[Rfam]
RNA sequence: GGGGAUGCACUUAGAACCCCAGGAGCGGCGUGUUAAUAGUGGUGCUUUUGGCCAGGCACGACGGUUAGUGAAUC
Dot-bracket structure: ((((.(........).))))............(((((.((.((((((......)))))).)).)))))......